[Rfam]
A member of the RNA family "mir-9215 microRNA precursor family" from Cnephaeus nilssonii, 85 nucleotides long. Rfam links the family to the GO terms RISC complex and miRNA-mediated post-transcriptional gene silencing.

RNA sequence: UGAAGUGCUCAGACACUAGGAUGUGUGGCUGCUGUGGGUUGGUGUGAACCAGGCUCACCCAGGGUCAGUGUUACCAGCAUUCAGU
Numbered sequence: 001u002g003a004a005g006u007g008c009u010c011a012g013a014c015a016c017u018a019g020g021a022u023g024u025g026u027g028g029c030u031g032c033u034g035u036g037g038g039u040u041g042g043u044g045u046g047a048a049c050c051a052g053g054c055u056c057a058c059c060c061a062g063g064g065u066c067a068g069u070g071u072u073a074c075c076a077g078c079a080u081u082c083a084g085u
Stems, first nucleotide, its partner, number of pairs: 001083004006079004012072006019066001022063001024061002027059002031054003037050004

Background:
It scores 96 bits against the family's covariance model.